[Rfam]
RNA sequence: GUCGUUGGGUAAUCGCAGUAUUCUUUCGAGAAUAUUGAGGAAAGUCCAUGCUCGCACGAUCUGAGAUGAUCGUAGUGUUCGUGCCUAGCGAAACAAUAAGCUAGGGUAGUUUGGCAUUGUGUUCAAGCUAACGGCAAGAGAAGCGCCUAAGUCCGUUUUGGAUAUGGCGUGAACUCUUUGAAAGUGCCACAGUGACGGAGUCCUUUUGGAAACAAAAGGAGUGGAACGCGGUAAACCCCUCGAGCGAGAAACUCAAAUUUGGUAGAGGAACCCUCUGGAAGGAAAUGAACUGAAAGAGGGACAGGCGGUCCUGUAGAUAGAUGAUUACCACCACUUGUACGAGAAGCCUAACUUCGUCUGAGUACAGUGGAACAGAACAUGGCUUACAGAC
Numbered sequence: 001g002u003c004g005u006u007g008g009g010u011a012a013u014c015g016c017a018g019u020a021u022u023c024u025u026u027c028g029a030g031a032a033u034a035u036u037g038a039g040g041a042a043a044g045u046c047c048a049u050g051c052u053c054g055c056a057c058g059a060u061c062u063g064a065g066a067u068g069a070u071c072g073u074a075g076u077g078u079u080c081g082u083g084c085c086u087a088g089c090g091a092a093a094c095a096a097u098a099a100g101c102u103a104g105g106g107u108a109g110u111u112u113g114g115c116a117u118u119g120u121g122u123u124c125a126a127g128c129u130a131a132c133g134g135c136a137a138g139a140g141a142a143g144c145g146c147c148u149a150a151g152u153c154c155g156u157u158u159u160g161g162a163u164a165u166g167g168c169g170u171g172a173a174c175u176c177u178u179u180g181a182a183a184g185u186g187c188c189a190c191a192g193u194g195a196c197g198g199a200g201u202c203c204u205u206u207u208g209g210a211a212a213c214a215a216a217a218g219g220a221g222u223g224g225a226a227c228g229c230g231g232u233a234a235a236c237c238c239c240u241c242g243a244g245c246g247a248g249a250a251a252c253u254c255a256a257a258u259u260u261g262g263u264a265g266a267g268g269a270a271c272c273c274u275c276u277g278g279a280a281g282g283a284a285a286u287g288a289a290c291u292g293a294a295a296g297a298g299g300g301a302c303a304g305g306c307g308g309u310c311c312u313g314u315a316g317a318u319a320g321a322u323g324a325u326u327a328c329c330a331c332c333a334c335u336u337g338u339a340c341g342a343g344a345a346g347c348c349u350a351a352c353u354u355c356g357u358c359u360g361a362g363u364a365c366a367g368u369g370g371a372a373c374a375g376a377a378c379a380u381g382g383c384u385u386a387c388a389g390a391c
Stems, first nucleotide, its partner, number of pairs: 004391003007387001008329007016037006042385003046382005051248005056073006079243003083239001084105006106132001107130008133238002136178004144169004151163003184236002186232003201220008252267003271300006301314005331370005337365004

Bacterial RNase P class B: a 391-nucleotide RNA from Pullulanibacillus camelliae. It scores 329 bits against the family's covariance model. A reference for the family is Frank and Pace (1998), "Ribonuclease P: unity and diversity in a tRNA processing ribozyme", Annu Rev Biochem. The source organism's lineage runs through Bacteria, Bacillota, Bacilli, Sporolactobacillaceae and Pullulanibacillus. Rfam describes the family as follows. Ribonuclease P (RNase P) is a ubiquitous endoribonuclease, found in archaea, bacteria and eukarya as well as chloroplasts and mitochondria. Its best characterised activity is the generation of mature 5'-ends of tRNAs by cleaving the 5'-leader elements of precursor-tRNAs. Cellular RNase Ps are ribonucleoproteins. RNA from bacterial RNase Ps retains its catalytic activity in the absence of the protein subunit, i.e. it is a ribozyme. Isolated eukaryotic and archaeal RNase P RNA has not been shown to retain its catalytic function, but is still essential for the catalytic activity of the holoenzyme. Although the archaeal and eukaryotic holoenzyme s have a much greater protein content than the bacterial ones, the RNA cores from all the three lineages are homologous -- helices corresponding to P1, P2, P3, P4, and P10/11 are common to all cellular RNase P RNAs. Yet, there is considerable sequence variation, particularly among the eukaryotic RNAs.